[Rfam]
RNA sequence: GUGGCUUCAGAUCUGGAUUUUAUUGUUGCAUUCACUUUUCAAAUGUGUUUGUAGUGUUUAAUUGAAGCCUAUAAUUGUGUUCCCCUCGCUAUCCACUACUACAAUUUCGAUGUUGUAUUUGGACGUCGGGGAACUAAAUUU
Numbered sequence: 001g002u003g004g005c006u007u008c009a010g011a012u013c014u015g016g017a018u019u020u021u022a023u024u025g026u027u028g029c030a031u032u033c034a035c036u037u038u039u040c041a042a043a044u045g046u047g048u049u050u051g052u053a054g055u056g057u058u059u060a061a062u063u064g065a066a067g068c069c070u071a072u073a074a075u076u077g078u079g080u081u082c083c084c085c086u087c088g089c090u091a092u093c094c095a096c097u098a099c100u101a102c103a104a105u106u107u108c109g110a111u112g113u114u115g116u117a118u119u120u121g122g123a124c125g126u127c128g129g130g131g132a133a134c135u136a137a138a139u140u141u
Stems, first nucleotide, its partner, number of pairs: 001072002003069003008064002011062002015059002018056001026054005033047003079134007087125002092123004101113003
The record is a 141-nucleotide RNA sequence from Lathyrus oleraceus, which matches "Small nucleolar RNA snoR136" in Rfam. The family has 8 seed sequences and 452 matches in Rfam 15.1. The match comes from Rfam's covariance-model search (98 bits). Gene Ontology terms of the family: RNA processing and nucleolus. The organism belongs to Lathyrus, within Eukaryota.